[Rfam]
RNA sequence: AAAAUUUUUUACGCCACCUAGAGGAUGGCUUGGCUAUAGCAGCGAUGAAGGCCGUGGCAAGCUGCGAUAAGCCCGGGGUAGCCGCAUGUCAGGCUUUGAACCCGGGAUUGCCGAAUCGUGCACGAAAGUGCAUGCAUACGCGGGGAACUGAAAUAUCUUAGUACCCGCAGGAAAAGAAAGCUUAAUGCGAUGCGGUAAGUAAUGCGAACGAAAACCGCAGAGGGCGUGCUGAAUCCUGUCUUGCAAAAGACGUGGAGAUGUGGCGCAGUUUUGAUCCAGAACACGAGUUGAACGCGUUGGAAAGCGCGGCCACAGAGAGUGACAGCCUCGUAAGCGUAGUGCAAUGGACUUGCUGCGAAUGAGUAAAUCCGCUUGAGUAUGCGGAGUGAAUACGGGGGCAUUAAACCCCAACCCUAAAUAUUGGCUAUAGACCGAUAGCGAACAAGUAGCGCGAGCGAAAGCUGAAAAGAACCCACACGCGUGGGAUUGAAAAGAUCUGAAACUAGGUGGUUACAUGCAGGUAGGGCACGAAAGGAAUGUACUAUGCCGAAGCAAAAUACCGAAAGGUAUCCGCGAGGCAAUAGCGAACAGUGUCCUAUC
Numbered sequence: 001a002a003a004a005u006u007u008u009u010u011a012c013g014c015c016a017c018c019u020a021g022a023g024g025a026u027g028g029c030u031u032g033g034c035u036a037u038a039g040c041a042g043c044g045a046u047g048a049a050g051g052c053c054g055u056g057g058c059a060a061g062c063u064g065c066g067a068u069a070a071g072c073c074c075g076g077g078g079u080a081g082c083c084g085c086a087u088g089u090c091a092g093g094c095u096u097u098g099a100a101c102c103c104g105g106g107a108u109u110g111c112c113g114a115a116u117c118g119u120g121c122a123c124g125a126a127a128g129u130g131c132a133u134g135c136a137u138a139c140g141c142g143g144g145g146a147a148c149u150g151a152a153a154u155a156u157c158u159u160a161g162u163a164c165c166c167g168c169a170g171g172a173a174a175a176g177a178a179a180g181c182u183u184a185a186u187g188c189g190a191u192g193c194g195g196u197a198a199g200u201a202a203u204g205c206g207a208a209c210g211a212a213a214a215c216c217g218c219a220g221a222g223g224g225c226g227u228g229c230u231g232a233a234u235c236c237u238g239u240c241u242u243g244c245a246a247a248a249g250a251c252g253u254g255g256a257g258a259u260g261u262g263g264c265g266c267a268g269u270u271u272u273g274a275u276c277c278a279g280a281a282c283a284c285g286a287g288u289u290g291a292a293c294g295c296g297u298u299g300g301a302a303a304g305c306g307c308g309g310c311c312a313c314a315g316a317g318a319g320u321g322a323c324a325g326c327c328u329c330g331u332a333a334g335c336g337u338a339g340u341g342c343a344a345u346g347g348a349c350u351u352g353c354u355g356c357g358a359a360u361g362a363g364u365a366a367a368u369c370c371g372c373u374u375g376a377g378u379a380u381g382c383g384g385a386g387u388g389a390a391u392a393c394g395g396g397g398g399c400a401u402u403a404a405a406c407c408c409c410a411a412c413c414c415u416a417a418a419u420a421u422u423g424g425c426u427a428u429a430g431a432c433c434g435a436u437a438g439c440g441a442a443c444a445a446g447u448a449g450c451g452c453g454a455g456c457g458a459a460a461g462c463u464g465a466a467a468a469g470a471a472c473c474c475a476c477a478c479g480c481g482u483g484g485g486a487u488u489g490a491a492a493a494g495a496u497c498u499g500a501a502a503c504u505a506g507g508u509g510g511u512u513a514c515a516u517g518c519a520g521g522u523a524g525g526g527c528a529c530g531a532a533a534g535g536a537a538u539g540u541a542c543u544a545u546g547c548c549g550a551a552g553c554a555a556a557a558u559a560c561c562g563a564a565a566g567g568u569a570u571c572c573g574c575g576a577g578g579c580a581a582u583a584g585c586g587a588a589c590a591g592u593g594u595c596c597u598a599u600c
Base pairs, nucleotide, nucleotide: 013511014510015509016508017507018506019505020504021503027497028462029461032433033432034430035429036428037427038426039425040423041422050112051111052110053066054065055064072106073105074104075103076102077101081094082093083092119132120131121130122129123128139170140168141167142166143165144164150157151156180188181187192218193217194216195215196214203208221415222414223413224412229263230262231261239250240249241248242247265356266355267354268353275348276347277346278345287335288334289333293308294307295306296305297304311315317329318328319327366387368385369384370383371382372381394409395408396407397406449456450455520600521599522598523597524596525595526594527593528592529591534589542584543583544582545581546579547578548577552574557570558569559568560567561566
Shown here is a 600-nucleotide part of an RNA from Candidatus Micrarchaeum sp. AZ1, a member of the family "Archaeal large subunit ribosomal RNA". Taxonomically the source falls in Candidatus Micrarchaeum (Archaea, Nanobdellati, Candidatus Micrarchaeia, Candidatus Micrarchaeales). It scores 2279 bits against the family's covariance model.